[Rfam]
The family of this 75-nucleotide RNA sequence from Branchiostoma floridae is "Mammalian CPEB3 ribozyme".
RNA sequence: CGCCACUACAUGGGGGCCACAGAAGGAGCGUUCACGUCGCGGUCCCUGUCAGGUGUUCUACCUGCGGAUCCUUCU
Dot-bracket structure: ............[[[[[[..((((((((((.......)))]]]]]]...((((((...))))))....)))))))
Numbered sequence: 001c002g003c004c005a006c007u008a009c010a011u012g013g014g015g016g017c018c019a020c021a022g023a024a025g026g027a028g029c030g031u032u033c034a035c036g037u038c039g040c041g042g043u044c045c046c047u048g049u050c051a052g053g054u055g056u057u058c059u060a061c062c063u064g065c066g067g068a069u070c071c072u073u074c075u
Stems, first nucleotide, its partner, number of pairs: 013046006021075007028040003050064006
Overview: NCBI's taxonomy places the organism under Eukaryota, Leptocardii, Amphioxiformes, Branchiostomatidae, Branchiostoma. It scores 65 bits against the family's covariance model.